This 78-nucleotide RNA from Microbacterium sp. dk485 belongs to the Rfam family "6C RNA". The match comes from Rfam's covariance-model search (57 bits). The family's consensus secondary structure is taken from published work. Rfam classes the family as a cis-regulatory element.

RNA sequence: UGCGUGACGGGCGGACCCCCCUAUACCGCCUGUCACGUGGCGGCAUCCCGUUUCCCCCCAGAUGGGAUGCCGCCUUCU
Dot-bracket structure: .((((((((((((.............))))))))))))(((((((((((((..........)))))))))))))....